[Rfam]
RNA sequence: GGGCUGGCUUUAGCCCAGCGGUUCCUUCGAGUCUGGCUUCCCAACCGCCCGGGCCCUGGGCCGAUUGGUCCCGUGGUUCGAGACCCGCGGGUGCUCUCCAGUCCUUUU
Numbered sequence: 001g002g003g004c005u006g007g008c009u010u011u012a013g014c015c016c017a018g019c020g021g022u023u024c025c026u027u028c029g030a031g032u033c034u035g036g037c038u039u040c041c042c043a044a045c046c047g048c049c050c051g052g053g054c055c056c057u058g059g060g061c062c063g064a065u066u067g068g069u070c071c072c073g074u075g076g077u078u079c080g081a082g083a084c085c086c087g088c089g090g091g092u093g094c095u096c097u098c099c100a101g102u103c104c105u106u107u108u
Stems, first nucleotide, its partner, number of pairs: 002103006013092004018088004026082008

Shown here is a 108-nucleotide RNA sequence from Cavia porcellus, a member of the family "Vault RNA". The family's RNA type in Rfam is non-coding RNA gene. It scores 75 bits against the family's covariance model.